A member of the RNA family "Glycine riboswitch aptamer" from Clostridium luticellarii, 94 nucleotides long. Rfam describes the family as follows. This family represents the bacterial glycine riboswitch. A search with the family's covariance model found it, with a score of 52 bits. NCBI's taxonomy places the organism under Bacteria, Bacillati, Eubacteriales, Clostridiaceae, Clostridium. For this family Rfam cites "In Vivo Behavior of the Tandem Glycine Riboswitch in Bacillus subtilis" (Babina et al., MBio, 2017).

[Rfam]
RNA sequence: GGACAAAACUCUGGAAAAUCUGUUCUUUAAAACAGUACCGAAGGUGAAAGGUGUUUGUAUCGAAUCUCUCAGGUAAAUAAACAGGGACGUGUGA
Numbered sequence: 001g002g003a004c005a006a007a008a009c010u011c012u013g014g015a016a017a018a019u020c021u022g023u024u025c026u027u028u029a030a031a032a033c034a035g036u037a038c039c040g041a042a043g044g045u046g047a048a049a050g051g052u053g054u055u056u057g058u059a060u061c062g063a064a065u066c067u068c069u070c071a072g073g074u075a076a077a078u079a080a081a082c083a084g085g086g087a088c089g090u091g092u093g094a
Base pairs, nucleotide, nucleotide: 009086010085011084012083013082020035021034022033023032037074038073039072040070041069044068046066050061051060
Dot-bracket structure: ........(((((......((((........)))).(((((..(.(...((........))....).))).))).......)))))........